[Rfam]
RNA sequence: CUUACCGCCGGACGGAACGAGUCGCGAGGGUUGGGGAACCCCUUGACCGGCCCGCACCGAGAGCCACCAGGGUCUAAGGGAGCCCGGGUGACUCGCUCCGGCGAAGGAG
Numbered sequence: 001c002u003u004a005c006c007g008c009c010g011g012a013c014g015g016a017a018c019g020a021g022u023c024g025c026g027a028g029g030g031u032u033g034g035g036g037a038a039c040c041c042c043u044u045g046a047c048c049g050g051c052c053c054g055c056a057c058c059g060a061g062a063g064c065c066a067c068c069a070g071g072g073u074c075u076a077a078g079g080g081a082g083c084c085c086g087g088g089u090g091a092c093u094c095g096c097u098c099c100g101g102c103g104a105a106g107g108a109g
Base pairs, nucleotide, nucleotide: 006103007102008101009100010099011098012097013059014058015057018054019053021051022050023049024048028041029040030039031038032037061094062093063092065090066089070085071084072083073082
Shown here is a 109-nucleotide RNA sequence from Actinomyces respiraculi, a member of the family "Actinomyces-1 RNA".
The family's RNA type in Rfam is small RNA.
The base pairs follow the family's consensus structure, which is taken from published work.
A search with the family's covariance model found it, with a score of 101 bits.